[Rfam]
RNA: mir-965 microRNA precursor family
Organism: Fopius arisanus
Nucleotides: 073
Base pairs, nucleotide, nucleotide: 003071004070006068007067009065010064011063013061014060017057018056019055020054021053026049027048028047029046030045
Number, partner (000 for none) and nucleotide at each position: 001000u002000u003071c004070u005000u006068g007067a008000g009065g010064g011063g012000a013061a014060a015000g016000g017057u018056u019055a020054u021053g022000g023000c024000g025000a026049u027048u028047a029046u030045g031000a032000u033000a034000a035000u036000a037000u038000u039000u040000g041000a042000a043000a044000c045030c046029a047028u048027a049026a050000g051000c052000g053021u054020a055019u056018a057017g058000c059000u060014u061013u062000u063011c064010c065009c066000c067007u068006u069000u070004g071003g072000c073000g